[Rfam]
RNA sequence: CUGGAGGACUAAGAAAGUGGAGCCAUUGAAAGUGUUUUGGCUCUGCUGAUACUCUCCUCCUAUAUUAAACGGUGGAAGAACAAGGCCUGUCUGUGAGACCUGUCAGGACCUACUUCCUCUACCUACAAAG
Numbered sequence: 001c002u003g004g005a006g007g008a009c010u011a012a013g014a015a016a017g018u019g020g021a022g023c024c025a026u027u028g029a030a031a032g033u034g035u036u037u038u039g040g041c042u043c044u045g046c047u048g049a050u051a052c053u054c055u056c057c058u059c060c061u062a063u064a065u066u067a068a069a070c071g072g073u074g075g076a077a078g079a080a081c082a083a084g085g086c087c088u089g090u091c092u093g094u095g096a097g098a099c100c101u102g103u104c105a106g107g108a109c110c111u112a113c114u115u116c117c118u119c120u121a122c123c124u125a126c127a128a129a130g
Stems, first nucleotide, its partner, number of pairs: 003060006010051002018045007025036001027034002071123006078116001083111003086107004
RNA: Small Cajal body specific RNA 15